The record is a 72-nucleotide RNA sequence from Tursiops truncatus, which matches "Small nucleolar RNA SNORD113/SNORD114 family" in Rfam. Lineage of the source: Eukaryota > Theria > Artiodactyla > Cetacea > Tursiops. For this family Rfam cites "Identification of tandemly-repeated C/D snoRNA genes at the imprinted human 14q32 domain reminiscent of those at the Prader-Willi/Angelman syndrome region" (Cavaille et al., Hum Mol Genet, 2002). The family's consensus secondary structure is taken from published work. The imprinted human domain at 14q32 contains two clusters of tandemly repeated small nucleolar RNAs named 14q(I) and 14q(II) snoRNAs. These two clusters are named SNORD113 and SNORD114 respectively in the HGNC approved gene symbol nomenclature. The snoRNAs found in both clusters are clearly related and are represented here by a single family. These snoRNAs are intron encoded and are processed from the tissue-specific non-coding human MEG8 RNA, which lies downstream of the imprinted genes DLK1 and GTL2. snoRNAs 14q(I) and 14q(II) differ from previously identified C/D box snoRNAs in their expression profiles and lack of complementarity to rRNA and snRNA. Homologues of these snoRNAs are found in the imprinted non-coding mouse transcript Rian, and in the rat non-coding Bsr (brain-specific repetitive) RNA. Rfam links the family to the GO terms nucleolus and RNA processing. By type it is a C/D-box small nucleolar RNA.
[Rfam]
RNA sequence: UGUAUGGCUGAUUACUCCUGGUGGCUUAUGGGUCAUGAAAGUUGAAUUUGUGUCUGUAACUUUGAUGUCCUA
Dot-bracket structure: .(.(((...........................................................))).)..